[Rfam]
RNA sequence: ACAAUAUUCCGCUGUCAAGGUUUGAUAAGAAUAUUUG
Dot-bracket structure: ..(((((((...((((((...)))))).)))))))..
RNA: Ribosomal protein L19 leader
Organism: Loigolactobacillus bifermentans